[Rfam]
RNA sequence: GACCUUGCCCCAAUGGUAAUUCCGCUUAGUACGAGAGGAACCGCAGAUUUAGAUAAUUGGUUUUUGCGGCUGUCUAACCAGGCAUUGCCGCAAAGCUACCAUCUGCUGGAUUAUGGCUAAACGCCUCUAAGUCAGAAUCCAUGCCAGAACGGGGUGAUUUCCGCCUGCACCAGUCGGAUACGAAUAGGCCUUUGGCCCAGAACCUUACCAGGCCGGCGUCUGCAGCCCCAUUGAAGUUGGGGUUGCUAGCCGGUGUAUUGCAAUUGUACAGUGCGCAGGAUUAAAUCCUUUGCAGAUAACUUAGUUGUCUAGCCAGGUCGUGUAAGUAGUUGAGUAGCCUUGUAGUUAUAAGCUACUGAGCGUAAGCCCGCCGCUAGCUUGGUUGAA
Dot-bracket structure: ....(((((((..((((.(.((.((.................)).)).)(((((...(((....(((((.(((((....)))))...)))))...)))..))))).(((....(((((...........)))))....))).))))....)))))))......(((((.(......................................................................................................).)))))....((((((..(.......)..))....(((((..((.((.....((((.(..(((((......)))))..)))))....))....))....)))))...))))...
The record is a 387-nucleotide part of an RNA from Dothidotthia symphoricarpi, which matches "Eukaryotic large subunit ribosomal RNA" in Rfam. NCBI's taxonomy places the organism under Eukaryota, Fungi, saccharomyceta, Dothidotthiaceae, Dothidotthia symphoricarpi. The base pairs follow the family's consensus structure, which is taken from published work. The match comes from Rfam's covariance-model search (3102 bits).